Shown here is a 147-nucleotide sequence from Gopherus agassizii, a member of the family "Small nucleolar RNA SNORA79". The match comes from Rfam's covariance-model search (117 bits). Gene Ontology terms of the family: RNA processing and nucleolus. From the family's description: ACA65 (SNORA79) is a member of the H/ACA class of snoRNAs that guide the sites of modification of uridines to pseudouridines. This snoRNA was identified by computational screening and its expression in mouse experimentally verified by Northern blot and primer extension analysis. The family's RNA type in Rfam is H/ACA-box small nucleolar RNA. On this family, see Schattner et al., RNA 2006: "A computational screen for mammalian pseudouridylation guide H/ACA RNAs".

RNA sequence: UGAUGACCGUUCCUCUUACUGCCAUGAGCCAUGGGCAGUGGGAUUUUGUGUCAUCGCAGAUUAAACUUGGCCUUUCUUCACUCAGAGUGCUCUCGGAUGGGUUUGGCCGUCCGUUGGCACUUCUGAAUUUUGCAGGGUCAGACACUC
Numbered sequence: 001u002g003a004u005g006a007c008c009g010u011u012c013c014u015c016u017u018a019c020u021g022c023c024a025u026g027a028g029c030c031a032u033g034g035g036c037a038g039u040g041g042g043a044u045u046u047u048g049u050g051u052c053a054u055c056g057c058a059g060a061u062u063a064a065a066c067u068u069g070g071c072c073u074u075u076c077u078u079c080a081c082u083c084a085g086a087g088u089g090c091u092c093u094c095g096g097a098u099g100g101g102u103u104u105g106g107c108c109g110u111c112c113g114u115u116g117g118c119a120c121u122u123c124u125g126a127a128u129u130u131u132g133c134a135g136g137g138u139c140a141g142a143c144a145c146u147c
Stems, first nucleotide, its partner, number of pairs: 001056007014043005020037004069139006082126005087120005095112005